This 143-nucleotide RNA from Paramylibacter kogurei belongs to the Rfam family "FMN riboswitch aptamer (RFN element)". Rfam describes the family as follows. The RFN element is a highly conserved domain that is found frequently in the 5'-untranslated regions of prokaryotic mRNAs that encode for flavin mononucleotide (FMN) biosynthesis and transport proteins.
RNA sequence: GCAUAUUCUCAGGGCGGGGUGUAAUUCCCCACCGGCGGUGUUUAAGGAAACUUAUCAGCCCGCGAGCGCCUUUUUCGAAAGGGUCAGCAGACUUGGUGCAAUCCCAAGGCCGACAGUGAAAGUCUGGAUGAAAGAGAAGGGGC
Numbered sequence: 001g002c003a004u005a006u007u008c009u010c011a012g013g014g015c016g017g018g019g020u021g022u023a024a025u026u027c028c029c030c031a032c033c034g035g036c037g038g039u040g041u042u043u044a045a046g047g048a049a050a051c052u053u054a055u056c057a058g059c060c061c062g063c064g065a066g067c068g069c070c071u072u073u074u075u076c077g078a079a080a081g082g083g084u085c086a087g088c089a090g091a092c093u094u095g096g097u098g099c100a101a102u103c104c105c106a107a108g109g110c111c112g113a114c115a116g117u118g119a120a121a122g123u124c125u126g127g128a129u130g131a132a133a134g135a136g137a138a139g140g141g142g143c
Stems, first nucleotide, its partner, number of pairs: 004140001006138005017029003031123002033112002035063004058110002066088002092108005114126003